[Rfam]
RNA sequence: GCAGGCUCACUCUGUGCCUGACUGCAAUAUUCAGUCACGGUGCUUUUUAGGCCUGCUAGAGUAAUCCAGGAUGUUGUGAACACUUUCCCUACUUGUGGAAGUCCGUUUCAAUUGAUCUUGGUACAGAUGA
Numbered sequence: 001g002c003a004g005g006c007u008c009a010c011u012c013u014g015u016g017c018c019u020g021a022c023u024g025c026a027a028u029a030u031u032c033a034g035u036c037a038c039g040g041u042g043c044u045u046u047u048u049a050g051g052c053c054u055g056c057u058a059g060a061g062u063a064a065u066c067c068a069g070g071a072u073g074u075u076g077u078g079a080a081c082a083c084u085u086u087c088c089c090u091a092c093u094u095g096u097g098g099a100a101g102u103c104c105g106u107u108u109c110a111a112u113u114g115a116u117c118u119u120g121g122u123a124c125a126g127a128u129g130a
Base pairs, nucleotide, nucleotide: 001056002055003054004053005052006051014043015042016041017040018039019037020036022034023033024032066121067120068119069118070117071116072115073112074111075110076109078107081105082102083101084100085099086098087097
RNA: Small nucleolar RNA SNORA77